[Rfam]
Rfam assigns this 68-nucleotide RNA from Flavobacterium akiainvivens to the family "Fluoride riboswitch aptamer (crcB RNA motif)". Pairs were carried over by alignment from the consensus structure, which is taken from published work. Rfam 15.1 lists 2,293 matches to the family in 1,982 species.
RNA sequence: AAGACAAAAGGAAAUGGUGUUCUUCCUUACCCAACCGCUUUUUAAGAGCUGAUGACGCCUGAUUAAAC
Numbered sequence: 001a002a003g004a005c006a007a008a009a010g011g012a013a014a015u016g017g018u019g020u021u022c023u024u025c026c027u028u029a030c031c032c033a034a035c036c037g038c039u040u041u042u043u044a045a046g047a048g049c050u051g052a053u054g055a056c057g058c059c060u061g062a063u064u065a066a067a068c
Base pairs, nucleotide, nucleotide: 010026011025012024013023016059017058018057019056020055021054037049038048039047040046